[Rfam]
RNA sequence: CGUAUGGUGUCCGGCUUUGGAUCGGAUAGCGAUACGGCCUUAACUGAGGU
Number, nucleotide and partner (000 for none) at each position: 001c036002g035003u034004a033005u032006g000007g030008u029009g000010u000011c025012c024013g023014g022015c020016u000017u000018u000019g000020g015021a000022u014023c013024g012025g011026a000027u000028a000029g008030c007031g000032a005033u004034a003035c002036g001037g000038c000039c000040u000041u000042a000043a000044c000045u000046g000047a000048g000049g000050u000
RNA: L31-Gammaproteobacteria ribosomal protein leader